The record is a 204-nucleotide sequence from Kribbella caucasensis, which matches "Actinobacteria sRNA Ms_IGR-5" in Rfam. The pairing is the family consensus, mapped onto this sequence. The family's RNA type in Rfam is small RNA. The organism belongs to Kribbella, within Bacteria.
[Rfam]
RNA sequence: ACACGCGAAGGGAGGUGGUCCAACGCAUGAAUUGCUAUCGGACUCGUGAGGUGGCGGCGGGCUGACCGCCAACCACUAGUUAGUGGGCAAGUGGUCGGCCAGUUCAACGCCAGCCACCGGGCCCGCGGGCAGUCAGGAAAGUCCGCCUGACCCAGCGUGCGAUCACCCGAUCGUGUCUCUGGAAGUGUCCGCGGGUCUCUUUUU
Numbered sequence: 001a002c003a004c005g006c007g008a009a010g011g012g013a014g015g016u017g018g019u020c021c022a023a024c025g026c027a028u029g030a031a032u033u034g035c036u037a038u039c040g041g042a043c044u045c046g047u048g049a050g051g052u053g054g055c056g057g058c059g060g061g062c063u064g065a066c067c068g069c070c071a072a073c074c075a076c077u078a079g080u081u082a083g084u085g086g087g088c089a090a091g092u093g094g095u096c097g098g099c100c101a102g103u104u105c106a107a108c109g110c111c112a113g114c115c116a117c118c119g120g121g122c123c124c125g126c127g128g129g130c131a132g133u134c135a136g137g138a139a140a141g142u143c144c145g146c147c148u149g150a151c152c153c154a155g156c157g158u159g160c161g162a163u164c165a166c167c168c169g170a171u172c173g174u175g176u177c178u179c180u181g182g183a184a185g186u187g188u189c190c191g192c193g194g195g196u197c198u199c200u201u202u203u204u
Stems, first nucleotide, its partner, number of pairs: 015058002018055002060100007068092002073086003119198013133150005